A member of the RNA family "Bacterial small subunit ribosomal RNA" from marine bacterium AO1-C, 542 nucleotides of a longer RNA. Rfam 15.1 lists 42,628 matches to the family in 10,626 species. It scores 1519 bits against the family's covariance model.
RNA sequence: ACAAUGGAGAGUUUGAUCCUGGCUCAGGAUGAACGCUAGCGGCAGGCCUAAUACAUGCAAGUCGAACGAGGUCUUCGGACCUAGUGGCGCACGGGUGCGUAACGCGUAUGCAACUUACCUCUUACUGGGGAAUAACUUUCCGAAAGGAGGGCUAAUACCGCAUAAAAGACAGUGAGGCAUCUCACAAUCUUAAAAGGUUACGGUAGGAGAUGGGCAUGCGUCCCAUUAGCUAGUUGGUAAGGUAAUGGCUUACCAAGGCGACGAUGGGUAGGGGAACUGAGAGGUCGAUCCCCCACACUGGUACUGAGAUACGGACCAGACUCCUACGGGAGGCAGCAGUAAGGAAUAUUGGUCAAUGGACGAGAGUCUGAACCAGCCAUGCCGCGUGCAGGAAGAAGGCGUUCCGCGUCGUAAACUGCUUUUAUAUAGGAAGAAAAAGUUUCUGCGGAAAUCAUUGACGGUACUAUAUGAAUAAGCACCGGCUAACUACGUGCCAGCAGCCGCGGUAAUACGUAGGGUGCAAGCGUUGUCCGGAUUUAUUG
Number, nucleotide and partner (000 for none) at each position: 001a000002c000003a000004a000005u000006g000007g000008a000009g025010a024011g023012u022013u021014u000015g000016a000017u000018c000019c000020u000021g013022g012023c011024u010025c009026a000027g532028g531029a530030u529031g000032a528033a527034c526035g525036c524037u523038a000039g385040c384041g383042g382043c381044a380045g378046g377047c343048c000049u000050a000051a000052u341053a340054c339055a000056u338057g337058c336059a000060a000061g088062u087063c086064g000065a000066a085067c084068g000069a082070g081071g080072u079073c078074u000075u000076c000077g000078g073079a072080c071081c070082u069083a000084g067085u066086g063087g062088c061089g000090c000091a000092c000093g000094g000095g296096u295097g294098c000099g000100u000101a000102a000103c000104g221105c220106g219107u218108a217109u216110g215111c214112a000113a000114c213115u212116u000117a000118c000119c209120u208121c207122u206123u205124a204125c203126u000127g161128g000129g159130g158131a000132a000133u000134a000135a000136c151137u150138u149139u148140c147141c146142g000143a000144a000145a000146g141147g140148a139149g138150g137151g136152c000153u000154a000155a000156u000157a000158c130159c129160g000161c127162a000163u000164a000165a000166a000167a190168g189169a188170c000171a000172g185173u184174g183175a182176g181177g000178c000179a000180u000181c176182u175183c174184a173185c172186a000187a000188u169189c168190u167191u000192a000193a000194a000195a000196g000197g000198u000199u000200a000201c000202g000203g125204u124205a123206g122207g121208a120209g119210a000211u000212g115213g114214g111215c110216a109217u108218g107219c106220g105221u104222c268223c267224c266225a000226u000227u000228a000229g259230c258231u257232a000233g000234u256235u255236g254237g253238u252239a251240a250241g249242g000243u000244a000245a000246u000247g000248g000249c241250u240251u239252a238253c237254c236255a235256a234257g231258g230259c229260g000261a000262c000263g000264a000265u000266g224267g223268g222269u000270a000271g293272g292273g291274g290275a000276a285277c284278u283279g000280a000281g000282a000283g278284g277285u276286c000287g000288a000289u000290c274291c273292c272293c271294c097295a096296c095297a000298c319299u318300g317301g316302u315303a000304c000305u000306g000307a000308g000309a000310u000311a000312c000313g000314g000315a302316c301317c300318a299319g298320a000321c332322u331323c330324c329325u000326a000327c000328g000329g324330g323331a322332g321333g000334c000335a000336g058337c057338a056339g054340u053341a052342a000343g047344g000345a000346a000347u000348a000349u375350u000351g374352g373353u372354c000355a000356a000357u370358g369359g368360a367361c366362g000363a000364g000365a000366g361367u360368c359369u358370g357371a000372a353373c352374c351375a349376g000377c046378c045379a000380u044381g043382c042383c041384g040385c039386g000387u000388g419389c418390a417391g416392g000393a000394a000395g000396a000397a000398g410399g409400c408401g407402u000403u000404c000405c000406g000407c401408g400409u399410c398411g000412u000413a000414a000415a000416c391417u390418g389419c388420u000421u000422u000423u000424a469425u468426a467427u466428a465429g464430g000431a000432a000433g459434a000435a000436a000437a000438a000439g453440u000441u451442u000443c000444u000445g000446c000447g000448g000449a000450a000451a441452u000453c439454a000455u000456u000457g000458a000459c433460g000461g000462u000463a000464c429465u428466a427467u426468a425469u424470g000471a000472a000473u000474a000475a000476g521477c520478a519479c518480c517481g000482g000483c000484u000485a000486a000487c516488u515489a514490c513491g512492u000493g000494c000495c000496a000497g504498c503499a000500g000501c000502c000503g498504c497505g000506g000507u000508a000509a000510u000511a000512c491513g490514u489515a488516g487517g480518g479519u478520g477521c476522a000523a037524g036525c035526g034527u033528u032529g030530u029531c028532c027533g000534g000535a000536u000537u000538u000539a000540u000541u000542g000